[Rfam]
RNA sequence: UAAACGGUGCCCAUGGUACUCUCCUUUAGGAUCUUUACCCUUUCCUAAAAAAAUGUCAUGGGCAUUAAAAA
Numbered sequence: 001u002a003a004a005c006g007g008u009g010c011c012c013a014u015g016g017u018a019c020u021c022u023c024c025u026u027u028a029g030g031a032u033c034u035u036u037a038c039c040c041u042u043u044c045c046u047a048a049a050a051a052a053a054u055g056u057c058a059u060g061g062g063c064a065u066u067a068a069a070a071a
Stems, first nucleotide, its partner, number of pairs: 006066010017055002027047005
This 71-nucleotide RNA belongs to the Rfam family "potC RNA". The sequence is in the family's curated seed alignment. It is annotated as a cis-regulatory element.